[Rfam]
SAM riboswitch aptamer (S box leader): a 99-nucleotide RNA from Lacicoccus alkaliphilus. Lineage of the source: Bacteria > Bacilli > Caryophanales > Lacicoccus > Lacicoccus alkaliphilus.
RNA sequence: GGCUUAUCAAGAGCGACGGAGGGAACUGGCCCGACGAAGUCCGGCAACCUUUUAAGUAAGGUGCCAAUUCCAGCCGGGGCCACCCCCGGGAGAUGAGCA
Dot-bracket structure: .(((((((....(.(((...(((..[[[[)))......))))((((.((.(....)...))))))...(]]]](.((((...)))).)..)))))))).